[Rfam]
RNA sequence: AUCCCUUCUGUCGUGUAUUCCCGAUUAAUGCAGCCUCAAUACGCUUC
Numbered sequence: 001a002u003c004c005c006u007u008c009u010g011u012c013g014u015g016u017a018u019u020c021c022c023g024a025u026u027a028a029u030g031c032a033g034c035c036u037c038a039a040u041a042c043g044c045u046u047c
Stems, first nucleotide, its partner, number of pairs: 010025004032045003

The record is a 47-nucleotide RNA from Trifolium subterraneum, which matches "Plastid-ycf3 group II-D1 intron" in Rfam.
Its family is annotated with Group II intron splicing in the Gene Ontology.
A reference for the family is Richter et al. (2023), "Retrograde signaling in plants: A critical review focusing on the GUN pathway and beyond", Plant Commun.
A search with the family's covariance model found it, with a score of 56 bits.
Rfam's curators write: Plastid rpl16 is a non-coding RNA (ncRNA) recognised in plastids. It was recognised in and intronic region of a ribosome rpl16 gene.
The base pairs follow the family's consensus structure, which was predicted with LocARNA.